[Rfam]
RNA sequence: AAAAAAAACCCGCCAUCAUGGCGGGGUAGACAGGGAUACGUCUAUGGCAAGGAAAACAGGGGUACUAUCUUU
Numbered sequence: 001a002a003a004a005a006a007a008a009c010c011c012g013c014c015a016u017c018a019u020g021g022c023g024g025g026g027u028a029g030a031c032a033g034g035g036a037u038a039c040g041u042c043u044a045u046g047g048c049a050a051g052g053a054a055a056a057c058a059g060g061g062g063u064a065c066u067a068u069c070u071u072u
Stems, first nucleotide, its partner, number of pairs: 008027001009025001011024001012022003029071002032068001034066001037064003041060002045056001
Dot-bracket structure: .......((.((((.....))).)).).((.(.(..(((.((..(..........)..)).))).).).)).

Overview:
Hfq-regulated sRNA 1: a 72-nucleotide RNA from Erwinia tasmaniensis. It is annotated as a small RNA. Its family is annotated with protein binding in the Gene Ontology. The organism belongs to Erwinia, within Bacteria. The family's consensus secondary structure was predicted with RNAfold.